[Rfam]
RNA sequence: GCAAUCUGCGCCUGGCGCACAGCAACCUGGUGGUCUACCGCUCGCUGCUGGGCAUCUCCUGGAUGUGGUUCUAUGGUGCCGUCUUCCUGACCCAGAUCCCCGCCUUUGCCAAAGACGUGCUG
Numbered sequence: 001g002c003a004a005u006c007u008g009c010g011c012c013u014g015g016c017g018c019a020c021a022g023c024a025a026c027c028u029g030g031u032g033g034u035c036u037a038c039c040g041c042u043c044g045c046u047g048c049u050g051g052g053c054a055u056c057u058c059c060u061g062g063a064u065g066u067g068g069u070u071c072u073a074u075g076g077u078g079c080c081g082u083c084u085u086c087c088u089g090a091c092c093c094a095g096a097u098c099c100c101c102g103c104c105u106u107u108g109c110c111a112a113a114g115a116c117g118u119g120c121u122g
Stems, first nucleotide, its partner, number of pairs: 010049001012047001014045001015043001017041002022036001024034001026032001051121005057115002060112001062110001063105001065103001067099002071095002075091001077089002081086001

About this RNA:
Rfam assigns this 122-nucleotide sequence from Ideonella sp. MAG2 to the family "Burkholderia RNA 11". Gene Ontology term of the family: protein binding. A search with the family's covariance model found it, with a score of 72 bits. Co-purified with Hfq, expression confirmed by Northern blot. Predicted target marZ. Overlaps coding sequence. By type it is a small RNA.